[Rfam]
RNA sequence: AGCUUAUCAAUGAUGUUUAAAAACAAAUGUCUGAACAUAUGAAUCUUUGUGAUUUAGACUUGUAACUGAGAUGAGCC
Numbered sequence: 001a002g003c004u005u006a007u008c009a010a011u012g013a014u015g016u017u018u019a020a021a022a023a024c025a026a027a028u029g030u031c032u033g034a035a036c037a038u039a040u041g042a043a044u045c046u047u048u049g050u051g052a053u054u055u056a057g058a059c060u061u062g063u064a065a066c067u068g069a070g071a072u073g074a075g076c077c
Base pairs, nucleotide, nucleotide: 002076003075004074005073006072007071008070

Description: Small nucleolar RNA SNORD72: a 77-nucleotide RNA from Hymenochirus boettgeri. The pairing is the family consensus, mapped onto this sequence. Taxonomically the source falls in Hymenochirus (Eukaryota, Opisthokonta, Vertebrata, Pipidae). Gene Ontology terms of the family: nucleolus and RNA processing. The family's RNA type in Rfam is C/D-box small nucleolar RNA. snoRNA HBII-240 belongs to the CD family of snoRNAs. It is the human orthologue of the mouse MBII-240 and is predicted to guide 2'O-ribose methylation of the large 28S rRNA at residue U4590.